[Rfam]
RNA sequence: GGUGCAUCAAGCCAUACCUGUCGCAAGGCAGGGACGGAAAUACCAGGAUCCGCGUUGGCCUUGGGAGAGGCACAACGAACGCGGACGGCCGGUUGCCCAG
Numbered sequence: 001g002g003u004g005c006a007u008c009a010a011g012c013c014a015u016a017c018c019u020g021u022c023g024c025a026a027g028g029c030a031g032g033g034a035c036g037g038a039a040a041u042a043c044c045a046g047g048a049u050c051c052g053c054g055u056u057g058g059c060c061u062u063g064g065g066a067g068a069g070g071c072a073c074a075a076c077g078a079a080c081g082c083g084g085a086c087g088g089c090c091g092g093u094u095g096c097c098c099a100g
Stems, first nucleotide, its partner, number of pairs: 012037002017032006040094001042093003046090002049085007
Shown here is a 100-nucleotide sequence from Betaproteobacteria bacterium SCN1, a member of the family "c-di-GMP-I riboswitch aptamer".